Overview:
This 372-nucleotide sequence from Cognatishimia activa belongs to the Rfam family "Alphaproteobacteria transfer-messenger RNA". Rfam's curators write: Bacterial tmRNA, also known as 10Sa RNA or SsrA, is named for its dual tRNA and mRNA-like properties. Its role is to liberate the mRNA from a stalled ribosome. To accomplish this part of the tmRNA is used as a reading frame that ends in a translation stop signal. The broken mRNA is replaced in the ribosome by the tmRNA and translation of the tmRNA leads to addition of a proteolysis tag to the incomplete protein enabling recognition by a protease.
[Rfam]
RNA sequence: AGCCUUGCAAAUCCGCUUAUUGCCGCCUAAAUCUGGUGUGUCCUUCGGGACUAUGGACAUAAACGCGCUCGUAAUAAGCGGAUCGGACCCGGGGGCGGUACCCGGCGUCUCCACCAAUACACUCUGGCGGUAUCCUUCAUUUGGGGAUCACUUUCAGAAGCGAGGGGACGAAAUAGGAUCGACGAACGUCUAAAGGGGUUAGCUUUGUUUCGGCUGUCUGCCACCGUUACCGGCGAAAACUGUACAAUUGCAAAUGACAAUCGUGCUCCAGUAGCAAUGGCUGCGUAAGCAGUCGGAGAUACUGACCUUUAAGUCCCUGGGCUAGCUGCCCUUGGCGGGGUUCGUAGGUACCUGGCAACAGAAACCUACACU
Numbered sequence: 001a002g003c004c005u006u007g008c009a010a011a012u013c014c015g016c017u018u019a020u021u022g023c024c025g026c027c028u029a030a031a032u033c034u035g036g037u038g039u040g041u042c043c044u045u046c047g048g049g050a051c052u053a054u055g056g057a058c059a060u061a062a063a064c065g066c067g068c069u070c071g072u073a074a075u076a077a078g079c080g081g082a083u084c085g086g087a088c089c090c091g092g093g094g095g096c097g098g099u100a101c102c103c104g105g106c107g108u109c110u111c112c113a114c115c116a117a118u119a120c121a122c123u124c125u126g127g128c129g130g131u132a133u134c135c136u137u138c139a140u141u142u143g144g145g146g147a148u149c150a151c152u153u154u155c156a157g158a159a160g161c162g163a164g165g166g167g168a169c170g171a172a173a174u175a176g177g178a179u180c181g182a183c184g185a186a187c188g189u190c191u192a193a194a195g196g197g198g199u200u201a202g203c204u205u206u207g208u209u210u211c212g213g214c215u216g217u218c219u220g221c222c223a224c225c226g227u228u229a230c231c232g233g234c235g236a237a238a239a240c241u242g243u244a245c246a247a248u249u250g251c252a253a254a255u256g257a258c259a260a261u262c263g264u265g266c267u268c269c270a271g272u273a274g275c276a277a278u279g280g281c282u283g284c285g286u287a288a289g290c291a292g293u294c295g296g297a298g299a300u301a302c303u304g305a306c307c308u309u310u311a312a313g314u315c316c317c318u319g320g321g322c323u324a325g326c327u328g329c330c331c332u333u334g335g336c337g338g339g340g341u342u343c344g345u346a347g348g349u350a351c352c353u354g355g356c357a358a359c360a361g362a363a364a365c366c367u368a369c370a371c372u
Base pairs, nucleotide, nucleotide: 040051041050042049043048055210056209057208058207059206065203066202067199068198069197070196079188080187083185084184085183089105090104091103092102093101106170107169108168109167110166111165112164211226212225213224217236218235220234221233222232338353339352340351341350344369345368346367347366348365349364
Its family is annotated with RNA catabolic process in the Gene Ontology.